[Rfam]
This 152-nucleotide sequence from Lachnospiraceae bacterium AM48-27BH belongs to the Rfam family "Clostridiales-1 RNA". The family's RNA type in Rfam is small RNA. The family's consensus secondary structure is taken from published work. The family has 194 seed sequences and 1,172 matches in Rfam 15.1.
RNA sequence: UGAAGGUGUUGUCAGGCGGCUGUGCGGACUGCGUGCUUGCACGCAAGGACGCAUAGACAUCUGACAACCAAGCAAGGAUGAGCAAGUAGGGCGCCAGCCCGGAUUGCGAAUCCUUGCUUUACCAGACGGCUAGUUGCCUGGUAACAGUUUCG
Numbered sequence: 001u002g003a004a005g006g007u008g009u010u011g012u013c014a015g016g017c018g019g020c021u022g023u024g025c026g027g028a029c030u031g032c033g034u035g036c037u038u039g040c041a042c043g044c045a046a047g048g049a050c051g052c053a054u055a056g057a058c059a060u061c062u063g064a065c066a067a068c069c070a071a072g073c074a075a076g077g078a079u080g081a082g083c084a085a086g087u088a089g090g091g092c093g094c095c096a097g098c099c100c101g102g103a104u105u106g107c108g109a110a111u112c113c114u115u116g117c118u119u120u121a122c123c124a125g126a127c128g129g130c131u132a133g134u135u136g137c138c139u140g141g142u143a144a145c146a147g148u149u150u151c152g
Stems, first nucleotide, its partner, number of pairs: 001152005007146001008068004015061002018058001020056007029047002031044005072117008082107004089100004120143006